Annotation:
Small nucleolar RNA SNORD72: an 86-nucleotide sequence from Abrus precatorius. Rfam describes the family as follows. snoRNA HBII-240 belongs to the CD family of snoRNAs. The literature on the family includes a 2001 paper in EMBO J by Huttenhofer et al., "RNomics: an experimental approach that identifies 201 candidates for novel, small, non-messenger RNAs in mouse". The family has 16 seed sequences and 726 matches in Rfam 15.1. Rfam links the family to the GO terms nucleolus and RNA processing.
RNA sequence: AGUUCUGCAAUGAUGAAGUUGCAUAAAUAUAUGUCUGGACAUAUGAAAUUUUCUAAUGAUAUCAUUUGCUUCUUCUGAGCAGAAUU
Numbered sequence: 001a002g003u004u005c006u007g008c009a010a011u012g013a014u015g016a017a018g019u020u021g022c023a024u025a026a027a028u029a030u031a032u033g034u035c036u037g038g039a040c041a042u043a044u045g046a047a048a049u050u051u052u053c054u055a056a057u058g059a060u061a062u063c064a065u066u067u068g069c070u071u072c073u074u075c076u077g078a079g080c081a082g083a084a085u086u
Stems, first nucleotide, its partner, number of pairs: 002085007